[Rfam]
RNA sequence: UUCGAAAAAGGCAAACCUGUCGAAAGAUAGGGACGCAAAGCAAAGGGCCUAAUACCGUUUGAGUGAUGGCUGCCUUGCUACCGAAG
Numbered sequence: 001u002u003c004g005a006a007a008a009a010g011g012c013a014a015a016c017c018u019g020u021c022g023a024a025a026g027a028u029a030g031g032g033a034c035g036c037a038a039a040g041c042a043a044a045g046g047g048c049c050u051a052a053u054a055c056c057g058u059u060u061g062a063g064u065g066a067u068g069g070c071u072g073c074c075u076u077g078c079u080a081c082c083g084a085a086g
Base pairs, nucleotide, nucleotide: 001086003083004082011036012035016031017030018029019028020027021026034072039079040078041077042076044075045074046073047070048069049068
Dot-bracket structure: (.((......((...((((((....))))))..[))..((((.((((((..................))).])))))))..))..)
Rfam assigns this 86-nucleotide sequence from Ornithinibacillus bavariensis to the family "c-di-GMP-I-GGC riboswitch aptamer". Pairs were carried over by alignment from the consensus structure, which is taken from published work. The organism belongs to Ornithinibacillus, within Bacteria. Rfam links the family to the GO term cyclic-di-GMP binding. Rfam 15.1 lists 1,298 matches to the family in 717 species.